[Rfam]
RNA sequence: AUGAUUGUAUGGGGAGAGCACGCACUGGCGUCGCCGAAGGAGCAAAUAACGAUUGUUAUGAAUCUCUCAGGUAACAAGACCCAUACAUGACG
Numbered sequence: 001a002u003g004a005u006u007g008u009a010u011g012g013g014g015a016g017a018g019c020a021c022g023c024a025c026u027g028g029c030g031u032c033g034c035c036g037a038a039g040g041a042g043c044a045a046a047u048a049a050c051g052a053u054u055g056u057u058a059u060g061a062a063u064c065u066c067u068c069a070g071g072u073a074a075c076a077a078g079a080c081c082c083a084u085a086c087a088u089g090a091c092g
Stems, first nucleotide, its partner, number of pairs: 006087008020031004033072003036068002040066003046059002
RNA: Glycine riboswitch aptamer